[Rfam]
The family of this 86-nucleotide sequence from Polypedilum vanderplanki is "mir-184 microRNA precursor family". NCBI's taxonomy places the organism under Eukaryota, Eumetazoa, Allotriocarida, Endopterygota, Polypedilum. Rfam links the family to the GO terms RISC complex and gene silencing by miRNA. For this family Rfam cites "The developmental miRNA profiles of zebrafish as determined by small RNA cloning" (Chen et al., Genes Dev, 2005). A search with the family's covariance model found it, with a score of 54 bits. The base pairs follow the family's consensus structure, which was predicted with PFOLD.

Nucleotides: 086
Base pairs, nucleotide, nucleotide: 012075013074014073015072016070017069018068019067020066021064022063023062024061025060026059029056030055
Number, partner (000 for none) and nucleotide at each position: 001000a002000u003000g004000u005000u006000u007000u008000c009000g010000a011000a012075c013074c014073c015072u016070u017069a018068u019067c020066a021064u022063u023062c024061u025060u026059u027000c028000g029056c030055c031000g032000c033000a034000c035000u036000g037000g038000u039000a040000a041000u042000u043000u044000u045000g046000a047000a048000c049000g050000c051000a052000a053000g054000u055030g056029g057000a058000c059026g060025g061024a062023g063022a064021a065000c066020u067019g068018a069017u070016a071000a072015a073014g074013g075012g076000c077000u078000a079000g080000u081000u082000u083000a084000c085000a086000u